[Rfam]
RNA sequence: UCUCUGGAGAGAGCGCUUAAGCCACCAAAGGGGUAAACUCCAUCGAGGGAGUUGAACUCUCAGGUCCAAGGACAGAGA
Numbered sequence: 001u002c003u004c005u006g007g008a009g010a011g012a013g014c015g016c017u018u019a020a021g022c023c024a025c026c027a028a029a030g031g032g033g034u035a036a037a038c039u040c041c042a043u044c045g046a047g048g049g050a051g052u053u054g055a056a057c058u059c060u061c062a063g064g065u066c067c068a069a070g071g072a073c074a075g076a077g078a
Base pairs, nucleotide, nucleotide: 001078002077003076004075005074006073013022014021024065025064026063028060031059032058033057037052038051039050040049
RNA: Glycine riboswitch aptamer